Description: This 56-nucleotide RNA from Salmo salar belongs to the Rfam family "mir-725 microRNA precursor family". Taxonomically the source falls in Salmo (Eukaryota, Chordata, Gnathostomata, Teleostomi).

[Rfam]
RNA sequence: AGCUAGAAACCUUGCCUGAGAUGUGCUGAUGAAUUUCAGUCAUUGUUUCUGGUAGU
Numbered sequence: 001a002g003c004u005a006g007a008a009a010c011c012u013u014g015c016c017u018g019a020g021a022u023g024u025g026c027u028g029a030u031g032a033a034u035u036u037c038a039g040u041c042a043u044u045g046u047u048u049c050u051g052g053u054a055g056u
Stems, first nucleotide, its partner, number of pairs: 002053009013042002016039007